[Rfam]
RNA sequence: ACUCGUUGGUGGCGACCUCUCCCUUAGCGGGCGGUCUAUUUGCACCUGUUUGUCAUCAAAUAACGCAAUAGCCAAAAAGCCCGCUCUCAGCGGGCUUUUUUGU
Numbered sequence: 001a002c003u004c005g006u007u008g009g010u011g012g013c014g015a016c017c018u019c020u021c022c023c024u025u026a027g028c029g030g031g032c033g034g035u036c037u038a039u040u041u042g043c044a045c046c047u048g049u050u051u052g053u054c055a056u057c058a059a060a061u062a063a064c065g066c067a068a069u070a071g072c073c074a075a076a077a078a079g080c081c082c083g084c085u086c087u088c089a090g091c092g093g094g095c096u097u098u099u100u101u102g103u
Stems, first nucleotide, its partner, number of pairs: 009043004014037001017034002021031003078096007
RNA: Tryptophan operon leader